[Rfam]
RNA sequence: UAAGUCAGGCAGACGGUCGCGCACCUUUUAGGUGUGAGGAAAGUCCGAGCUUCAUAGAGCAGAGUGCCAGAUAACGUCUGGUGGAGGCGACUCUAAGGAUAGUGCAACAGAAAUAAACCGCCUACUUUUGUAGGUAAGGGUGGAAAGGUAGCGUAAGAGACUACCGCACCUUUGGUAACAAAGGUGGCUCUGUAAACCCCACUUGAAGCAAGAUUGGAUAAGACAACAAGGGUUGCUCGCCCUGUCUUAGGUAGAAAUCGCAUGAGAUUUGUGGCGACACAGAUACGAGAUAGAUGACCGUCCAACGACAGAACUCGGCUUAUCGCUUGGCUUAUGUG
Numbered sequence: 001u002a003a004g005u006c007a008g009g010c011a012g013a014c015g016g017u018c019g020c021g022c023a024c025c026u027u028u029u030a031g032g033u034g035u036g037a038g039g040a041a042a043g044u045c046c047g048a049g050c051u052u053c054a055u056a057g058a059g060c061a062g063a064g065u066g067c068c069a070g071a072u073a074a075c076g077u078c079u080g081g082u083g084g085a086g087g088c089g090a091c092u093c094u095a096a097g098g099a100u101a102g103u104g105c106a107a108c109a110g111a112a113a114u115a116a117a118c119c120g121c122c123u124a125c126u127u128u129u130g131u132a133g134g135u136a137a138g139g140g141u142g143g144a145a146a147g148g149u150a151g152c153g154u155a156a157g158a159g160a161c162u163a164c165c166g167c168a169c170c171u172u173u174g175g176u177a178a179c180a181a182a183g184g185u186g187g188c189u190c191u192g193u194a195a196a197c198c199c200c201a202c203u204u205g206a207a208g209c210a211a212g213a214u215u216g217g218a219u220a221a222g223a224c225a226a227c228a229a230g231g232g233u234u235g236c237u238c239g240c241c242c243u244g245u246c247u248u249a250g251g252u253a254g255a256a257a258u259c260g261c262a263u264g265a266g267a268u269u270u271g272u273g274g275c276g277a278c279a280c281a282g283a284u285a286c287g288a289g290a291u292a293g294a295u296g297a298c299c300g301u302c303c304a305a306c307g308a309c310a311g312a313a314c315u316c317g318g319c320u321u322a323u324c325g326c327u328u329g330g331c332u333u334a335u336g337u338g
Base pairs, nucleotide, nucleotide: 001334002333003332004331005330006329007328008327009326010325011323012302013301014300015299016298017297018296020036021035022034023033024032025031026030041321042320043319045318046317047316048315049314050208051207052206053205057238058237059236060235062204063203064202065201066200067081068080069079070078071077082096083094084093085092086091097199098198102197103196104193105192106191118139119138120135121134122133123132124131125130147165148164149163150162151161166188167186168185169184170183171182172181173180174179212259213258214257215256219249220248221247222246223245229243230242231241232240233239267284268283269282270281271280272279273278